[Rfam]
RNA: 6S / SsrS RNA
Organism: Nitratireductor sp. StC3
RNA sequence: GACGGUCUGCGCCUCGCGGCAGGAGUAACAUUCCCCGGGGCCUUAUUGAUCCCAAGGGAGCUGUCCCUGGUUGGACCCGUGGGUCCUUUCAUACGGCGCCCACCUACUUUGUAGGCACCCGGGAUCAACCUCUCCACCGGUGUGUGUGGAUCGUCG
Number, nucleotide and partner (000 for none) at each position: 001g000002a154003c153004g152005g151006u150007c149008u148009g147010c146011g145012c000013c142014u000015c140016g000017c139018g138019g137020c000021a000022g000023g000024a000025g000026u000027a000028a000029c000030a000031u000032u124033c123034c122035c121036c000037g119038g118039g000040g116041c115042c114043u000044u000045a000046u000047u000048g000049a000050u000051c000052c000053c000054a000055a000056g101057g100058g099059a000060g097061c096062u095063g094064u093065c000066c000067c000068u000069g090070g089071u000072u000073g086074g085075a084076c083077c082078c000079g000080u000081g000082g077083g076084u075085c074086c073087u000088u000089u070090c069091a000092u000093a064094c063095g062096g061097c060098g000099c058100c057101c056102a000103c000104c000105u000106a000107c000108u000109u000110u000111g000112u000113a000114g042115g041116c040117a000118c038119c037120c000121g035122g034123g033124a032125u000126c000127a000128a000129c000130c000131u000132c000133u000134c000135c000136a000137c019138c018139g017140g015141u000142g013143u000144g000145u011146g010147u009148g008149g007150a006151u005152c004153g003154u002155c000156g000